[Rfam]
RNA sequence: UAAUUAGGUAGAGGUGCAAUCUCGAAAAAGUAUACUGUUGGAGCUUCAGGGCAGCUAUGAAAACAGAGGAAAGGUCGAAUUGCCGAAGCAGCUGUGUUUCCUUGACUUAGCUUGCUGGGGUAUAGUUGAAUAAACUAUGCACUGUCACUGCGUUUGUAGUGGAGCACUAUCCUAUUG
Numbered sequence: 001u002a003a004u005u006a007g008g009u010a011g012a013g014g015u016g017c018a019a020u021c022u023c024g025a026a027a028a029a030g031u032a033u034a035c036u037g038u039u040g041g042a043g044c045u046u047c048a049g050g051g052c053a054g055c056u057a058u059g060a061a062a063a064c065a066g067a068g069g070a071a072a073g074g075u076c077g078a079a080u081u082g083c084c085g086a087a088g089c090a091g092c093u094g095u096g097u098u099u100c101c102u103u104g105a106c107u108u109a110g111c112u113u114g115c116u117g118g119g120g121u122a123u124a125g126u127u128g129a130a131u132a133a134a135c136u137a138u139g140c141a142c143u144g145u146c147a148c149u150g151c152g153u154u155u156g157u158a159g160u161g162g163a164g165c166a167c168u169a170u171c172c173u174a175u176u177g
Stems, first nucleotide, its partner, number of pairs: 007171005016083005022078004033068001035066005087116003090112005096106002117143002120140008145162007
Lysine riboswitch aptamer: a 177-nucleotide sequence from Salipaludibacillus neizhouensis. Lineage of the source: Bacteria > Bacilli > Caryophanales > Bacillaceae > Salipaludibacillus. On this family, see Rodionov et al., Nucleic Acids Res 2003: "Regulation of lysine biosynthesis and transport genes in bacteria: yet another RNA riboswitch?".